The family of this 121-nucleotide sequence from Acerihabitans arboris is "Histidine operon leader". The literature on the family includes a 1982 paper in Annu Rev Genet by Kolter and Yanofsky, "Attenuation in amino acid biosynthetic operons". Rfam describes the family as follows. At least 6 amino acid operons are known to be regulated by attenuation. In each a leader sequence of 150-200 bp is found upstream of the first gene in the operon. By type it is a cis-regulatory leader.
RNA sequence: CCAUCAUCACCAUCAUCCUGACUAGUCUUUCAGGCGUUUGGUGCUGGAAGACAUAAUAUCUUCCAGUGGCGCAGAAUGUAAGAGAGAGCCCUCGGAAGAUAUCUUCCGAGGGUUUUUUUUU
Numbered sequence: 001c002c003a004u005c006a007u008c009a010c011c012a013u014c015a016u017c018c019u020g021a022c023u024a025g026u027c028u029u030u031c032a033g034g035c036g037u038u039u040g041g042u043g044c045u046g047g048a049a050g051a052c053a054u055a056a057u058a059u060c061u062u063c064c065a066g067u068g069g070c071g072c073a074g075a076a077u078g079u080a081a082g083a084g085a086g087a088g089c090c091c092u093c094g095g096a097a098g099a100u101a102u103c104u105u106c107c108g109a110g111g112g113u114u115u116u117u118u119u120u121u
Stems, first nucleotide, its partner, number of pairs: 008043003012038001014036001017034005044066008083118016